A member of the RNA family "Bacterial RNase P class A" from Pontivivens ytuae, 364 nucleotides long.
It is annotated as a ribozyme.
RNA sequence: GCGGAGGGUUGGAUGAUCGCGGGCAUGCGUGUCCGAGGAAAGUCCGGACUCCCAGAAGCGACGGCGCCGGGUAACGCCCGGCCGGGGCAACCCGAGGGACAGCGCCACAGAGAACAGACCCCCCGGCGACGGGGAAGGGUGAAACGGUGGGGUAAGAGCCCACCGCCGGGCUGGCAACAGACCGGGCACGGCAAGCCCCGCCGGGAGCAAGGCCGAAUAGGGAUCGCGCAUGGGGUGCUUCUCCCCGCGGUCCGGGUUGGCUGCUCGAGGUCCCGCGCAAGCGGCGGCCCAGAUGAAUGAUCAUCCACGGGGACACGUCUGACGGUCCCCCGGACAGAAUCCGGCUUACAGACCCUCCGCACCU
Number, nucleotide and partner (000 for none) at each position: 001g360002c359003g358004g357005a356006g355007g354008g353009u352010u351011g349012g305013a304014u303015g302016a301017u300018c299019g000020c035021g034022g033023g032024c031025a030026u000027g000028c000029g000030u025031g024032u023033c022034c021035g020036a000037g000038g000039a000040a347041a346042g345043u000044c344045c343046g342047g341048a340049c207050u206051c205052c204053c000054a000055g000056a000057a000058g240059c000060g238061a000062c203063g202064g201065c200066g199067c081068c080069g079070g078071g077072u000073a000074a000075c000076g000077c071078c070079c069080g068081g067082c096083c094084g093085g092086g091087g000088c000089a000090a000091c086092c085093c084094g083095a000096g082097g198098g197099a000100c000101a000102g196103c195104g192105c191106c190107a000108c000109a000110g000111a000112g000113a000114a000115c000116a000117g000118a000119c138120c137121c134122c133123c132124c131125g130126g000127c000128g000129a000130c125131g124132g123133g122134g121135a000136a000137g120138g119139g000140u000141g000142a000143a000144a000145c000146g164147g163148u162149g161150g160151g159152g000153u000154a000155a000156g000157a000158g000159c151160c150161c149162a148163c147164c146165g187166c185167c184168g183169g182170g000171c180172u179173g178174g000175c000176a000177a000178c173179a172180g171181a000182c169183c168184g167185g166186g000187c165188a000189c000190g106191g105192c104193a000194a000195g103196c102197c098198c097199c066200g065201c064202c063203g062204g052205g051206a050207g049208c000209a000210a000211g262212g261213c260214c259215g000216a000217a000218u000219a000220g000221g253222g252223a251224u250225c249226g248227c000228g000229c000230a000231u000232g246233g245234g244235g243236u000237g000238c060239u000240u058241c000242u000243c235244c234245c233246c232247g000248c226249g225250g224251u223252c222253c221254g000255g000256g000257u000258u000259g214260g213261c212262u211263g000264c000265u000266c000267g000268a000269g288270g000271u286272c000273c284274c283275g282276c281277g000278c000279a000280a000281g276282c275283g274284g273285c000286g271287g000288c269289c000290c000291a000292g000293a000294u000295g000296a000297a000298u000299g018300a017301u016302c015303a014304u013305c012306c000307a000308c000309g000310g000311g000312g000313a000314c000315a000316c000317g000318u000319c000320u000321g000322a000323c000324g000325g000326u000327c000328c000329c000330c000331c000332g000333g000334a000335c000336a000337g000338a000339a000340u048341c047342c046343g045344g044345c042346u041347u040348a000349c011350a000351g010352a009353c008354c007355c006356u005357c004358c003359g002360c001361a000362c000363c000364u000